[Rfam]
RNA: Flavo-1 RNA
Organism: Flavobacterium macacae
RNA sequence: AAAUAGCCCCGAUUGCAGAGAAAAUCCUUUUUAUUUUUUCUUUAAAAAUAAAAAGAUUGGAACGGAAAGCGGGAAAAUGA
Numbered sequence: 001a002a003a004u005a006g007c008c009c010c011g012a013u014u015g016c017a018g019a020g021a022a023a024a025u026c027c028u029u030u031u032u033a034u035u036u037u038u039u040c041u042u043u044a045a046a047a048a049u050a051a052a053a054a055g056a057u058u059g060g061a062a063c064g065g066a067a068a069g070c071g072g073g074a075a076a077a078u079g080a
Stems, first nucleotide, its partner, number of pairs: 009072003013068002018063001023058004029053010